[Rfam]
RNA sequence: CACAGGGCUCACGCCCUGUGCUGGGCUAUGUCACCCCUUCGGGGUU
Numbered sequence: 001c002a003c004a005g006g007g008c009u010c011a012c013g014c015c016c017u018g019u020g021c022u023g024g025g026c027u028a029u030g031u032c033a034c035c036c037c038u039u040c041g042g043g044g045u046u
Base pairs, nucleotide, nucleotide: 001020002019003018004017005016006015007014008013033045034044035043036042037041
RNA: Acido-Lenti-1 RNA